This 195-nucleotide RNA sequence from Alteribacillus bidgolensis belongs to the Rfam family "Group II catalytic intron D1-D4-5". Group II introns are found in rRNA, tRNA and mRNA of organelles in fungi, plants and protists, and also in mRNA in bacteria. Gene Ontology term of the family: Group II intron splicing. The pairing is the family consensus, mapped onto this sequence. The family has 139 seed sequences and 720 matches in Rfam 15.1. A reference for the family is Bonen and Vogel (2001), "The ins and outs of group II introns", Trends Genet. NCBI's taxonomy places the organism under Bacteria, Bacillati, Caryophanales, Bacillaceae, Alteribacillus.
RNA sequence: CUGAAGGGUUAUGUCGAGGAGUCGAAUGAGGAGGUAACGCUCUGAAAGGCUCCCCCUGCGUCGAAUAGCACGCUGAUUAGUAAGGAAAAGAGUGUUAUAAGCUCGGCUAAUAGGCGUGAGAAUUUACCGUAACAGUUCGGCUGACGAAAGCCUACCUGAUAGGGUGGUGUAAAUCAUGGUGCUUGGGUUUAACAG
Numbered sequence: 001c002u003g004a005a006g007g008g009u010u011a012u013g014u015c016g017a018g019g020a021g022u023c024g025a026a027u028g029a030g031g032a033g034g035u036a037a038c039g040c041u042c043u044g045a046a047a048g049g050c051u052c053c054c055c056c057u058g059c060g061u062c063g064a065a066u067a068g069c070a071c072g073c074u075g076a077u078u079a080g081u082a083a084g085g086a087a088a089a090g091a092g093u094g095u096u097a098u099a100a101g102c103u104c105g106g107c108u109a110a111u112a113g114g115c116g117u118g119a120g121a122a123u124u125u126a127c128c129g130u131a132a133c134a135g136u137u138c139g140g141c142u143g144a145c146g147a148a149a150g151c152c153u154a155c156c157u158g159a160u161a162g163g164g165u166g167g168u169g170u171a172a173a174u175c176a177u178g179g180u181g182c183u184u185g186g187g188u189u190u191a192a193c194a195g
Base pairs, nucleotide, nucleotide: 018053019052020051021050022049023048031043033041034040054187055186056185061106062105063104064103065098066097067096068095069094070093071092073090074089077086078085113183114182115181116180117179122174123173124172125171126170127169128146129145130144134142135141150168151167152166154165155164156163157162